About this RNA
tRNA: a 72-nucleotide RNA from Faecalibacterium gallinarum. It scores 67 bits against the family's covariance model. By type it is a transfer RNA. Clan: tRNA clan.
RNA sequence: GGUGGCGUGGCCAAGUGGUAAGGCAAAGGUCUGCAAAACCUUCAUCCACCAGUUCAAAUCUGGUCGCCACCU
Numbered sequence: 001g002g003u004g005g006c007g008u009g010g011c012c013a014a015g016u017g018g019u020a021a022g023g024c025a026a027a028g029g030u031c032u033g034c035a036a037a038a039c040c041u042u043c044a045u046c047c048a049c050c051a052g053u054u055c056a057a058a059u060c061u062g063g064u065c066g067c068c069a070c071c072u
Stems, first nucleotide, its partner, number of pairs: 001071007010024003026042005048064005